[Rfam]
Nucleotides: 064
Stems, first nucleotide, its partner, number of pairs: 001014005016060003024054005
Number, partner (000 for none) and nucleotide at each position: 001014c002013c003012c004011g005010u006000c007000g008000a009000c010005a011004c012003g013002g014001g015000a016060c017059g018058a019000u020000a021000u022000g023000u024054g025053g026052c027051u028050c029000a030000a031000g032000c033000g034000g035000u036000c037000c038000g039000a040000c041000g042000g043000a044000c045000c046000a047000c048000g049000a050028g051027g052026g053025c054024c055000g056000a057000a058018u059017c060016g061000c062000a063000a064000g